The family of this 65-nucleotide sequence from Pongo abelii is "U7 small nuclear RNA". The literature on the family includes a 2007 paper in Genomics Proteomics Bioinformatics by Marz et al., "U7 snRNAs: a computational survey".

RNA sequence: AGGUGUUACAGCUCUUUCAGAAUUUGUCUAGUAUGUUUUCUGGUUUCCACUCCCGGGAAGUCUCG
Numbered sequence: 001a002g003g004u005g006u007u008a009c010a011g012c013u014c015u016u017u018c019a020g021a022a023u024u025u026g027u028c029u030a031g032u033a034u035g036u037u038u039u040c041u042g043g044u045u046u047c048c049a050c051u052c053c054c055g056g057g058a059a060g061u062c063u064c065g
Base pairs, nucleotide, nucleotide: 035061036060037059038058039057040056041055043053